[Rfam]
Nucleotides: 033
Base pairs, nucleotide, nucleotide: 003020004019005018010032011031012030
Number, partner (000 for none) and nucleotide at each position: 001000a002000a003020a004019g005018g006000c007000g008000a009000g010032g011031c012030c013000g014000a015000a016000a017000a018005c019004c020003u021000a022000a023000c024000a025000g026000a027000g028000u029000a030012g031011g032010c033000a

Background: This 33-nucleotide RNA sequence from Kordia sp. SMS9 belongs to the Rfam family "DUF805b RNA". It scores 38 bits against the family's covariance model. Rfam classes the family as a cis-regulatory element.